[Rfam]
RNA sequence: CGACCGGGACGACCCGGCGACGCAGCAACCCUUGGCGGGACGGCCUGC
Numbered sequence: 001c002g003a004c005c006g007g008g009a010c011g012a013c014c015c016g017g018c019g020a021c022g023c024a025g026c027a028a029c030c031c032u033u034g035g036c037g038g039g040a041c042g043g044c045c046u047g048c
Stems, first nucleotide, its partner, number of pairs: 004017005035048005
RNA: Guanidine-II riboswitch aptamer (mini-ykkC)
Organism: Fluviicoccus keumensis